[Rfam]
RNA sequence: CAACUUUAAACAUGAUAGCCACGUAUAAUCAUAGGAAUAUGGCCUAUAAGUCUCUACCGGGUUACCGUAAAUAGCCUGACUACGCGGAUGAUACAAUAAGAC
Numbered sequence: 001c002a003a004c005u006u007u008a009a010a011c012a013u014g015a016u017a018g019c020c021a022c023g024u025a026u027a028a029u030c031a032u033a034g035g036a037a038u039a040u041g042g043c044c045u046a047u048a049a050g051u052c053u054c055u056a057c058c059g060g061g062u063u064a065c066c067g068u069a070a071a072u073a074g075c076c077u078g079a080c081u082a083c084g085c086g087g088a089u090g091a092u093a094c095a096a097u098a099a100g101a102c
Base pairs, nucleotide, nucleotide: 019087020086022084023083024082025081029049031047032046033045034044035043058078059077060076061075062074063073064072
RNA: Purine riboswitch aptamer
Organism: Brevibacillus laterosporus